The family of this 74-nucleotide RNA from Suricata suricatta is "Small nucleolar RNA SNORD113/SNORD114 family". Pairs were carried over by alignment from the consensus structure, which is taken from published work. The imprinted human domain at 14q32 contains two clusters of tandemly repeated small nucleolar RNAs named 14q(I) and 14q(II) snoRNAs. These two clusters are named SNORD113 and SNORD114 respectively in the HGNC approved gene symbol nomenclature. A reference for the family is Cavaille et al. (2002), "Identification of tandemly-repeated C/D snoRNA genes at the imprinted human 14q32 domain reminiscent of those at the Prader-Willi/Angelman syndrome region", Hum Mol Genet. Lineage of the source: Eukaryota > Metazoa > Bilateria > Amniota > Suricata. The family has 59 seed sequences and 5,721 matches in Rfam 15.1. Its family is annotated with nucleolus and RNA processing in the Gene Ontology.

RNA sequence: UGGACCAGUGAUGAUGGCCAGUGGUGUAGGAGUCACGGACGAUGAAGCUCUGUGUCUGAAACUCUGAGGUCCAA
Numbered sequence: 001u002g003g004a005c006c007a008g009u010g011a012u013g014a015u016g017g018c019c020a021g022u023g024g025u026g027u028a029g030g031a032g033u034c035a036c037g038g039a040c041g042a043u044g045a046a047g048c049u050c051u052g053u054g055u056c057u058g059a060a061a062c063u064c065u066g067a068g069g070u071c072c073a074a
Stems, first nucleotide, its partner, number of pairs: 002072005